[Rfam]
RNA sequence: GCAAGCUGGUGGGCAGGUCACCUGUUAAAGGAGGAAACUCCUCCCUCCAGGCAGGGGUGCGACCCAGCGAUGGGUAGCCAGAGAUGGCUGGCAAUGGUACAGAAAUGGUAUCCAGCCUAGGUAAGAUGAUGCCUAGAAGGCUGAUGUUCCUAGGGUAGGAGUGAAACAACCAACCCGCACGGGGCAAGGCCAAAUAGGAUCGAUGAGUCCUGCCAGAGAUCCAGGUAGGCUGCUCAGCCGAAUCCUGCCUAGAACAGAAGGAGGGUUACGGCCAGCAUGC
Numbered sequence: 001g002c003a004a005g006c007u008g009g010u011g012g013g014c015a016g017g018u019c020a021c022c023u024g025u026u027a028a029a030g031g032a033g034g035a036a037a038c039u040c041c042u043c044c045c046u047c048c049a050g051g052c053a054g055g056g057g058u059g060c061g062a063c064c065c066a067g068c069g070a071u072g073g074g075u076a077g078c079c080a081g082a083g084a085u086g087g088c089u090g091g092c093a094a095u096g097g098u099a100c101a102g103a104a105a106u107g108g109u110a111u112c113c114a115g116c117c118u119a120g121g122u123a124a125g126a127u128g129a130u131g132c133c134u135a136g137a138a139g140g141c142u143g144a145u146g147u148u149c150c151u152a153g154g155g156u157a158g159g160a161g162u163g164a165a166a167c168a169a170c171c172a173a174c175c176c177g178c179a180c181g182g183g184g185c186a187a188g189g190c191c192a193a194a195u196a197g198g199a200u201c202g203a204u205g206a207g208u209c210c211u212g213c214c215a216g217a218g219a220u221c222c223a224g225g226u227a228g229g230c231u232g233c234u235c236a237g238c239c240g241a242a243u244c245c246u247g248c249c250u251a252g253a254a255c256a257g258a259a260g261g262a263g264g265g266u267u268a269c270g271g272c273c274a275g276c277a278u279g280c
Stems, first nucleotide, its partner, number of pairs: 001280003005276005010270002012249006021031003036267003040264005045184004050214005057180005062075005076089005090175002095172004111160003114156001116154006131141002188231004197222005
Archaeal RNase P: a 280-nucleotide RNA from archaeon HR04. The family's consensus secondary structure is taken from published work. Gene Ontology terms of the family: tRNA processing, multimeric ribonuclease P complex and ribonuclease P activity. The family is grouped with related families in Rfam's "RNaseP clan". Ribonuclease P (RNase P) is a ubiquitous endoribonuclease, found in archaea, bacteria and eukarya as well as chloroplasts and mitochondria. Its best characterised activity is the generation of mature 5'-ends of tRNAs by cleaving the 5'-leader elements of precursor-tRNAs. Cellular RNase Ps are ribonucleoproteins. RNA from bacterial RNase Ps retains its catalytic activity in the absence of the protein subunit, i.e. it is a ribozyme. Isolated eukaryotic and archaeal RNase P RNA has not been shown to retain its catalytic function, but is still essential for the catalytic activity of the holoenzyme. Although the archaeal and eukaryotic holoenzymes have a much greater protein content than the bacterial ones, the RNA cores from all the three lineages are homologous -- helices corresponding to P1, P2, P3, P4, and P10/11 are common to all cellular RNase P RNAs. Yet, there is considerable sequence variation, particularly among the eukaryotic RNAs.